[Rfam]
RNA sequence: CUCUGGAAAGCGGAUGGCCCCACACCUGGGCUUCAUCCCACCGAAGGAGUAAACCGCCAGCCUUCCUACAGGCGCGCCCGGUUGCGGCGCGCGGGGCCGACGGCCAAUCUCUCAGGUUCCGAAGACAGAG
Number, nucleotide and partner (000 for none) at each position: 001c130002u129003c128004u127005g126006g000007a000008a000009a000010g000011c000012g038013g037014a036015u035016g034017g033018c000019c000020c000021c000022a000023c000024a000025c000026c000027u000028g000029g000030g000031c000032u000033u017034c016035a015036u014037c013038c012039c000040a117041c116042c115043g113044a112045a000046g000047g111048a110049g109050u000051a000052a000053a000054c103055c102056g101057c000058c000059a000060g000061c000062c000063u000064u000065c000066c000067u000068a000069c000070a000071g000072g000073c000074g000075c000076g000077c000078c000079c000080g000081g000082u000083u000084g000085c000086g000087g000088c000089g000090c000091g000092c000093g000094g000095g000096g000097c000098c000099g000100a000101c056102g055103g054104c000105c000106a000107a000108u000109c049110u048111c047112u044113c043114a000115g042116g041117u040118u000119c000120c000121g000122a000123a000124g000125a000126c005127a004128g003129a002130g001

Glycine riboswitch aptamer: a 130-nucleotide RNA sequence from Dongia mobilis. Rfam's curators write: This family represents the bacterial glycine riboswitch. Glycine riboswitches usually consist of two metabolite-binding aptamers domains with similar structures in tandem. The aptamers cooperatively bind glycine to regulate the expression of downstream genes. In Bacillus subtilis, this riboswitch is found upstream of the gcvT operon which controls glycine degradation. The organism belongs to Dongia, within Bacteria. A search with the family's covariance model found it, with a score of 34 bits. Rfam links the family to the GO term glycine biosynthetic process.